[Rfam]
RNA sequence: AAAUCCUUUUAAUUUUGUCCUGUGAGGCAAGCAAAGGAAUAACAAAUUCAUUUAAAUAAAAUUUAACUAUGUAUUUUUGUUAUACCUAAGCCUUACAGAAAAAGAGGUUUAGGUAUUUUUAUU
Numbered sequence: 001a002a003a004u005c006c007u008u009u010u011a012a013u014u015u016u017g018u019c020c021u022g023u024g025a026g027g028c029a030a031g032c033a034a035a036g037g038a039a040u041a042a043c044a045a046a047u048u049c050a051u052u053u054a055a056a057u058a059a060a061a062u063u064u065a066a067c068u069a070u071g072u073a074u075u076u077u078u079g080u081u082a083u084a085c086c087u088a089a090g091c092c093u094u095a096c097a098g099a100a101a102a103a104g105a106g107g108u109u110u111a112g113g114u115a116u117u118u119u120u121a122u123u
Stems, first nucleotide, its partner, number of pairs: 004038006014031006044077003048073001052066005082116012
PyrR binding site: a 123-nucleotide sequence from Malacoplasma penetrans. The family's RNA type in Rfam is cis-regulatory element. The source organism's lineage runs through Bacteria, Bacillati, Mycoplasmatota, Mycoplasmoidales and Malacoplasma penetrans.